Shown here is a 170-nucleotide RNA sequence from Oryza rufipogon, a member of the family "MIR807 microRNA precursor family". A search with the family's covariance model found it, with a score of 172 bits.
RNA sequence: AGCCACACUAUCAAUGAAUGGAUUCACCCGCGAGAUGACGUGGCUGUUUCACUUAGGACGAGGACAUGGCAUCCUAUUACCUGUACGAAAUUAAUAGGACACCACGUCCUCAUCCUAGAUGGAACAACCACGUCAUCUCACGAGUGAAUCCAUUCAUCGAUAGUGUUGUU
Numbered sequence: 001a002g003c004c005a006c007a008c009u010a011u012c013a014a015u016g017a018a019u020g021g022a023u024u025c026a027c028c029c030g031c032g033a034g035a036u037g038a039c040g041u042g043g044c045u046g047u048u049u050c051a052c053u054u055a056g057g058a059c060g061a062g063g064a065c066a067u068g069g070c071a072u073c074c075u076a077u078u079a080c081c082u083g084u085a086c087g088a089a090a091u092u093a094a095u096a097g098g099a100c101a102c103c104a105c106g107u108c109c110u111c112a113u114c115c116u117a118g119a120u121g122g123a124a125c126a127a128c129c130a131c132g133u134c135a136u137c138u139c140a141c142g143a144g145u146g147a148a149u150c151c152a153u154u155c156a157u158c159g160a161u162a163g164u165g166u167u168g169u170u
Stems, first nucleotide, its partner, number of pairs: 001170003005166003009162004014157002017154003021150007030141001032139002035136005041130003045126004051120001054117002057114002063108003069102001072099008
Pairs were carried over by alignment from the consensus structure, which was predicted with WAR.